[Rfam]
A member of the RNA family "mir-1199 microRNA precursor family" from Neotoma lepida, 100 nucleotides long. The match comes from Rfam's covariance-model search (89 bits). Pairs were carried over by alignment from the consensus structure, which was predicted with RNAalifold. NCBI's taxonomy places the organism under Eukaryota, Sarcopterygii, Euarchontoglires, Myomorpha, Neotoma.
RNA sequence: UGCGCCGGAGCCGGGGUCUGAGUCCCGGCCGUGCCGGCGAGGAACUCAUCGAGUUGCGCAUACGGCCGGUGCUCAACCGGCCCGGCCCCGGCCCCCAACU
Numbered sequence: 001u002g003c004g005c006c007g008g009a010g011c012c013g014g015g016g017u018c019u020g021a022g023u024c025c026c027g028g029c030c031g032u033g034c035c036g037g038c039g040a041g042g043a044a045c046u047c048a049u050c051g052a053g054u055u056g057c058g059c060a061u062a063c064g065g066c067c068g069g070u071g072c073u074c075a076a077c078c079g080g081c082c083c084g085g086c087c088c089c090g091g092c093c094c095c096c097a098a099c100u
Stems, first nucleotide, its partner, number of pairs: 002099001007095002010092009019075005024069002027067007037057002040054001045053003